[Rfam]
RNA sequence: UCAGGGGAAACCGAAAACCUGAAAGAGAGUAGGUG
Numbered sequence: 001u002c003a004g005g006g007g008a009a010a011c012c013g014a015a016a017a018c019c020u021g022a023a024a025g026a027g028a029g030u031a032g033g034u035g
Stems, first nucleotide, its partner, number of pairs: 002021004010034003

Annotation:
This 35-nucleotide sequence from Arcticibacter svalbardensis belongs to the Rfam family "DUF805b RNA". The family is grouped with related families in Rfam's "DUF805 clan". The family's RNA type in Rfam is cis-regulatory element. The source organism's lineage runs through Bacteria, Sphingobacteriia, Sphingobacteriales, Sphingobacteriaceae and Arcticibacter svalbardensis.